Rfam assigns this 76-nucleotide RNA from Salmo trutta to the family "mir-130 microRNA precursor family". For this family Rfam cites "Identification of tissue-specific microRNAs from mouse" (Lagos-Quintana et al., Curr Biol, 2002). Lineage of the source: Eukaryota > Deuterostomia > Teleostomi > Protacanthopterygii > Salmo.
Nucleotides: 076
Base pairs, nucleotide, nucleotide: 001076002075003074005071006070007069008068009067012064013063014062015061016060017059018058019057022054023053024052025051026050027049028048029047030046
Number, partner (000 for none) and nucleotide at each position: 001076u002075g003074a004000u005071g006070c007069a008068c009067c010000c011000u012064a013063u014062u015061u016060c017059c018058u019057u020000c021000a022054u023053a024052g025051u026050g027049c028048a029047c030046u031000g032000c033000u034000c035000u036000g037000g038000u039000c040000a041000a042000a043000a044000g045000c046030a047029g048028u049027g050026c051025a052024c053023u054022g055000u056000a057019a058018a059017g060016g061015g062014a063013a064012u065000a066000u067009g068008g069007u070006g071005c072000u073000a074003u075002u076001a